[Rfam]
RNA sequence: UCAGGCCGGUGAUGAUUGAUAUUUUGAUUUGCCUACAUUGUCUGAUAAUUUUAUGACUGAGAACACUCUGUCUGAGGCCUGA
Dot-bracket structure: ((.((((....................................................................)))).))
The record is an 82-nucleotide RNA sequence from Cucumis sativus, which matches "Small nucleolar RNA SNORD34" in Rfam. snoRNA U34 is found in intron 5 of the ribosomal protein L13a gene in humans. The family's RNA type in Rfam is C/D-box small nucleolar RNA. On this family, see Galardi et al., Mol Cell Biol 2002: "Purified box C/D snoRNPs are able to reproduce site-specific 2'-O-methylation of target RNA in vitro". The base pairs follow the family's consensus structure, which was predicted with PFOLD. The family has 14 seed sequences and 1,319 matches in Rfam 15.1. Rfam links the family to the GO terms RNA processing and nucleolus.